The record is a 170-nucleotide RNA sequence, which matches "Clostridiales-1 RNA" in Rfam.
Rfam's curators put it in the seed alignment.
The family's RNA type in Rfam is small RNA.
Nucleotides: 170
Base pairs, nucleotide, nucleotide: 001170002169003168004167005166006165007164010068011067017061018060019059020058021057022056025052026051027050028049030046031044032043033042034041035040074126075125076124077123078122079121080120081119084116085115086114087113092109093108094107095106096105097104098103129160130159131158132157133156134155135154140150141149142148143147
Number, partner (000 for none) and nucleotide at each position: 001170u002169g003168a004167u005166a006165c007164c008000a009000g010068g011067g012000g013000c014000a015000a016000a017061a018060g019059g020058u021057c022056u023000a024000a025052a026051c027050c028049c029000a030046c031044a032043u033042g034041a035040g036000c037000u038000c039000g040035c041034u042033c043032a044031u045000a046030g047000g048000u049028g050027g051026g052025u053000g054000a055000a056022a057021g058020a059019c060018c061017u062000u063000g064000u065000g066000a067011c068010c069000c070000a071000c072000u073000c074126c075125c076124u077123g078122a079121u080120a081119u082000g083000a084116g085115c086114a087113u088000a089000a090000a091000a092109g093108u094107g095106g096105g097104a098103u099000g100000a101000u102000a103098a104097u105096c106095c107094c108093a109092c110000g111000a112000u113087a114086u115085g116084c117000g118000a119081a120080u121079a122078u123077u124076g125075g126074g127000g128000a129160g130159a131158a132157u133156u134155g135154u136000g137000g138000g139000a140150g141149u142148g143147c144000g145000u146000a147143g148142c149141a150140c151000g152000g153000a154135a155134c156133a157132a158131u159130u160129c161000g162000u163000a164007g165006g166005u167004a168003u169002c170001a